[Rfam]
RNA sequence: UUUUGUCCUCGAAGAGCACUCCUCCUCCCAGCUCUUCAAGGACAGAUCAGCUUCGCUGAUCGAAGGCGGCGCCAUCCUCCUCCCGGCGCCGCCUUUUUUA
Numbered sequence: 001u002u003u004u005g006u007c008c009u010c011g012a013a014g015a016g017c018a019c020u021c022c023u024c025c026u027c028c029c030a031g032c033u034c035u036u037c038a039a040g041g042a043c044a045g046a047u048c049a050g051c052u053u054c055g056c057u058g059a060u061c062g063a064a065g066g067c068g069g070c071g072c073c074a075u076c077c078u079c080c081u082c083c084c085g086g087c088g089c090c091g092c093c094u095u096u097u098u099u100a
Stems, first nucleotide, its partner, number of pairs: 007041003011037007045061007063095011
A member of the RNA family "Alphaproteobacterial ar14" from Phytoamicus setariae, 100 nucleotides long. Taxonomically the source falls in Phytoamicus (Bacteria, Pseudomonadota, Alphaproteobacteria, Rhizobiaceae). A search with the family's covariance model found it, with a score of 63 bits. By type it is a small RNA. On this family, see del Val et al., RNA Biol 2012: "A survey of sRNA families in alpha-proteobacteria". From the family's description: Smr14C2 was renamed NfeR1 (Nodule Formation Efficiency RNA) highly expressed in salt stress and during the symbiotic interaction on legume roots.